Shown here is a 198-nucleotide RNA from Chitinibacter fontanus, a member of the family "Lysine riboswitch aptamer". About the family: Riboswitches are metabolite binding domains within certain messenger RNAs that serve as precision sensors for their corresponding targets. The organism belongs to Chitinibacter, within Bacteria.
[Rfam]
RNA sequence: AACGACAAGAGAGGCGCCUUGCCCAGGUUGUAUUGCUGAGGAAAUCACAUUCCAAUGACGCAGUGCUAGGGGGUGCAAGGCCGAAGUGUUGAGUGCUGUGAUGCAUUUAACGCUGGUUGCAGGGGCUGAAUCCCCUGGACUGUCAGUGCUCACUGUGUGCCUUGCCGCGCAUUGGAGUGCUGGAGUGCUCUUGGUGAU
Number, nucleotide and partner (000 for none) at each position: 001a000002a000003c000004g000005a000006c193007a192008a191009g190010a189011g188012a000013g000014g000015c000016g081017c080018c079019u078020u077021g076022c075023c000024c073025a000026g000027g000028u000029u000030g066031u065032a064033u063034u062035g061036c060037u000038g000039a000040g000041g000042a000043a000044a000045u000046c000047a000048c000049a000050u000051u000052c000053c000054a000055a000056u000057g000058a000059c000060g036061c035062a034063g033064u032065g031066c030067u000068a000069g000070g000071g000072g000073g024074u000075g022076c021077a020078a019079g018080g017081c016082c000083g000084a000085a114086g113087u112088g111089u110090u109091g108092a107093g106094u105095g104096c103097u000098g000099u000100g000101a000102u000103g096104c095105a094106u093107u092108u091109a090110a089111c088112g087113c086114u085115g141116g140117u139118u138119g000120c137121a136122g135123g134124g133125g132126c000127u000128g000129a000130a000131u000132c125133c124134c123135c122136u121137g120138g118139a117140c116141u115142g000143u183144c182145a181146g180147u179148g178149c177150u176151c175152a000153c000154u000155g000156u000157g000158u000159g000160c000161c000162u000163u000164g000165c000166c000167g000168c000169g000170c000171a000172u000173u000174g000175g151176a150177g149178u148179g147180c146181u145182g144183g143184a000185g000186u000187g000188c011189u010190c009191u008192u007193g006194g000195u000196g000197a000198u000